[Rfam]
A member of the RNA family "MIR7502 microRNA precursor family" from Gossypium trilobum, 145 nucleotides long. It scores 111 bits against the family's covariance model.
RNA sequence: UGUUUAAAGUUUCAUCCAUUUGUAUUGUUAAAAACUGGUAUGGUCGACAGAAUAACCGGAAAGUGACACGUGGCUUGCCAUGUGUACCUUGUGUUAAUGUACAAGGAUCAGUUUUUAACAAUAGAACUAGAUGAAAAUUUUAACA
Numbered sequence: 001u002g003u004u005u006a007a008a009g010u011u012u013c014a015u016c017c018a019u020u021u022g023u024a025u026u027g028u029u030a031a032a033a034a035c036u037g038g039u040a041u042g043g044u045c046g047a048c049a050g051a052a053u054a055a056c057c058g059g060a061a062a063g064u065g066a067c068a069c070g071u072g073g074c075u076u077g078c079c080a081u082g083u084g085u086a087c088c089u090u091g092u093g094u095u096a097a098u099g100u101a102c103a104a105g106g107a108u109c110a111g112u113u114u115u116u117a118a119c120a121a122u123a124g125a126a127c128u129a130g131a132u133g134a135a136a137a138u139u140u141u142a143a144c145a
Stems, first nucleotide, its partner, number of pairs: 002144003006140003010136007018128001020126002023123004028118006